[Rfam]
RNA sequence: GUCUAGCCCUGAUGGGAGCGGCAUCCUUUUUUUCCUGGCUGGCCGUUUUACAAACGGUGAGCUAGGAAAAAAAGAUAUAGCGUACAGCAGGACAACUC
Numbered sequence: 001g002u003c004u005a006g007c008c009c010u011g012a013u014g015g016g017a018g019c020g021g022c023a024u025c026c027u028u029u030u031u032u033u034c035c036u037g038g039c040u041g042g043c044c045g046u047u048u049u050a051c052a053a054a055c056g057g058u059g060a061g062c063u064a065g066g067a068a069a070a071a072a073a074g075a076u077a078u079a080g081c082g083u084a085c086a087g088c089a090g091g092a093c094a095a096c097u098c
Base pairs, nucleotide, nucleotide: 009090010089011088013086014085018081019080023076024075025074029071030070031069032068033067034066035065036064037063038062039061040060
RNA: Flavo-1 RNA